About this RNA:
A member of the RNA family "PrrF RNA" from Pseudomonas mangrovi, 146 nucleotides long.
[Rfam]
RNA sequence: UUGACUCUCAAAUGAUAAUAGUUAUUAUUAGCACAGCUGAUCGCGAGAUCGGCGGGUAACCUGGAAGACCAGGCAGUGGACUUUCAGAUUAUCUCCUCAUCAGGCUAAACACGGUUUUAGACCCGGCUCUGCCGGGUCUUUUUUUG
Numbered sequence: 001u002u003g004a005c006u007c008u009c010a011a012a013u014g015a016u017a018a019u020a021g022u023u024a025u026u027a028u029u030a031g032c033a034c035a036g037c038u039g040a041u042c043g044c045g046a047g048a049u050c051g052g053c054g055g056g057u058a059a060c061c062u063g064g065a066a067g068a069c070c071a072g073g074c075a076g077u078g079g080a081c082u083u084u085c086a087g088a089u090u091a092u093c094u095c096c097u098c099a100u101c102a103g104g105c106u107a108a109a110c111a112c113g114g115u116u117u118u119a120g121a122c123c124c125g126g127c128u129c130u131g132c133c134g135g136g137u138c139u140u141u142u143u144u145u146g
Stems, first nucleotide, its partner, number of pairs: 034055001036053007061087007069078001095104003120138008

PrrF RNA is a small RNA involved in iron homeostasis and is found exclusively in Pseudomonas species.
The family's consensus secondary structure is taken from published work.
The literature on the family includes a 2004 paper in Proc Natl Acad Sci U S A by Wilderman et al., "Identification of tandem duplicate regulatory small RNAs in Pseudomonas aeruginosa involved in iron homeostasis".
The organism belongs to Pseudomonas, within Bacteria.
The family's RNA type in Rfam is small RNA.